Rfam assigns this 63-nucleotide sequence from Otolemur garnettii to the family "U7 small nuclear RNA".
[Rfam]
RNA sequence: UAGUGUUAUAGCUCUUUUAUUAAUUUGUCUAGCAGGUUUUCCAGUCUCCACUGGAAGAUUACA
Number, nucleotide and partner (000 for none) at each position: 001u000002a000003g000004u000005g000006u000007u000008a000009u000010a000011g000012c000013u000014c000015u000016u000017u000018u000019a000020u000021u000022a000023a000024u000025u000026u000027g000028u000029c000030u000031a000032g000033c000034a000035g060036g059037u058038u057039u056040u055041c054042c053043a052044g051045u050046c000047u000048c000049c000050a045051c044052u043053g042054g041055a040056a039057g038058a037059u036060u035061a000062c000063a000
Taxonomically the source falls in Otolemur (Eukaryota, Eumetazoa, Primates, Strepsirrhini). Rfam describes the family as follows. Animal histone pre-mRNAs are spliced by a different mechanism than nuclear pre-mRNAs and self-splicing introns. This processing involves the U7 snRNP, which contains only one RNA species: U7. The 5' end of U7 RNA is thought to base-pair to a conserved spacer element downstream of the cleavage site in histone pre-mRNA. This family contains a number of annotated U7 pseudogenes.